[Rfam]
RNA: Bacterial large subunit ribosomal RNA, nucleotides 1158 to 1424
Organism: Anaerococcus lactolyticus
RNA sequence: AUUGAUAGAGAAAUUAAAUCUAUCACAUAAAGAAGGACUAAAAAGGAAAGAUAAAAAACUUAACUAGGAAAUAUUGUAACAAUAUCAAGAUAAACGAGUUAUACAAUCAAAAAAAUUACGCAAAUAUCAAAAGUAAAACACUAAGAUAUGGGUAAAAAAACUCAAUUAUCACCGAAACAGCAUACGAAAGUAUGACCUGGUUAAUCAAAGUAUUAUCUAACCAAAAAAAGAACUUUAUGUCUAGAUUUAAAAUCUCUAUCAGUGGUA
Numbered sequence: 001a002u003u004g005a006u007a008g009a010g011a012a013a014u015u016a017a018a019u020c021u022a023u024c025a026c027a028u029a030a031a032g033a034a035g036g037a038c039u040a041a042a043a044a045g046g047a048a049a050g051a052u053a054a055a056a057a058a059c060u061u062a063a064c065u066a067g068g069a070a071a072u073a074u075u076g077u078a079a080c081a082a083u084a085u086c087a088a089g090a091u092a093a094a095c096g097a098g099u100u101a102u103a104c105a106a107u108c109a110a111a112a113a114a115a116u117u118a119c120g121c122a123a124a125u126a127u128c129a130a131a132a133g134u135a136a137a138a139c140a141c142u143a144a145g146a147u148a149u150g151g152g153u154a155a156a157a158a159a160a161c162u163c164a165a166u167u168a169u170c171a172c173c174g175a176a177a178c179a180g181c182a183u184a185c186g187a188a189a190g191u192a193u194g195a196c197c198u199g200g201u202u203a204a205u206c207a208a209a210g211u212a213u214u215a216u217c218u219a220a221c222c223a224a225a226a227a228a229a230g231a232a233c234u235u236u237a238u239g240u241c242u243a244g245a246u247u248u249a250a251a252a253u254c255u256c257u258a259u260c261a262g263u264g265g266u267a
Base pairs, nucleotide, nucleotide: 001263002262003261004260005259006258007257008256009255010254011253